[Rfam]
RNA sequence: UCGUGCUAGACGGGGAGGUAGCGGUGCCCUGUACCUGCAACCCGCUAUAGCAGGGUCGAAUUCCUGCCCGAGGCAUAUAGCUGUGAAGACAGGGCCAUGAUUAAAGAGCAAUGAAGAUUGGGUCUUGCGCAAUUCAGGGCUGUGAACCCCGUCAGGUCCGGAAGGAAGCAGCGGUAAGCAGUUUACUGGAUGUGCCGCAAGGGUGCCUGAUCCGAGCUUUUUAUCGUGGUGCCGUUUGUAGUUGUAUGUCGACGGCAGGUGCACGA
Numbered sequence: 001u002c003g004u005g006c007u008a009g010a011c012g013g014g015g016a017g018g019u020a021g022c023g024g025u026g027c028c029c030u031g032u033a034c035c036u037g038c039a040a041c042c043c044g045c046u047a048u049a050g051c052a053g054g055g056u057c058g059a060a061u062u063c064c065u066g067c068c069c070g071a072g073g074c075a076u077a078u079a080g081c082u083g084u085g086a087a088g089a090c091a092g093g094g095c096c097a098u099g100a101u102u103a104a105a106g107a108g109c110a111a112u113g114a115a116g117a118u119u120g121g122g123u124c125u126u127g128c129g130c131a132a133u134u135c136a137g138g139g140c141u142g143u144g145a146a147c148c149c150c151g152u153c154a155g156g157u158c159c160g161g162a163a164g165g166a167a168g169c170a171g172c173g174g175u176a177a178g179c180a181g182u183u184u185a186c187u188g189g190a191u192g193u194g195c196c197g198c199a200a201g202g203g204u205g206c207c208u209g210a211u212c213c214g215a216g217c218u219u220u221u222u223a224u225c226g227u228g229g230u231g232c233c234g235u236u237u238g239u240a241g242u243u244g245u246a247u248g249u250c251g252a253c254g255g256c257a258g259g260u261g262c263a264c265g266a
Stems, first nucleotide, its partner, number of pairs: 001266006009057003012030004017025001019023001034054005063259006072250005078244010092230001096228006104221002107218003116212008124201006130192002133190005138183006149174004157166003